[Rfam]
Nucleotides: 131
Stems, first nucleotide, its partner, number of pairs: 001055002012046005018040001020038001071122003075118002079114002082111003087107005
Number, partner (000 for none) and nucleotide at each position: 001055a002054c003000g004000g005000a006000c007000u008000g009000g010000c011000u012046g013045c014044c015043u016042c017000c018040u019000g020038c021000a022000c023000g024000c025000c026000c027000c028000c029000c030000c031000c032000u033000g034000g035000g036000g037000g038020g039000g040018g041000c042016g043015g044014g045013g046012c047000u048000u049000u050000c051000u052000c053000c054002g055001u056000c057000u058000g059000c060000c061000a062000c063000a064000g065000a066000c067000a068000c069000g070000u071122u072121c073120c074000a075118g076117g077000g078000c079114g080113c081000u082111g083110u084109g085000a086000c087107c088106g089105c090104c091103u092000g093000g094000a095000c096000a097000g098000g099000u100000c101000a102000a103091g104090g105089g106088c107087g108000c109084u110083g111082c112000c113080g114079c115000u116000g117076c118075c119000c120073g121072g122071g123000g124000a125000c126000a127000c128000g129000g130000u131000u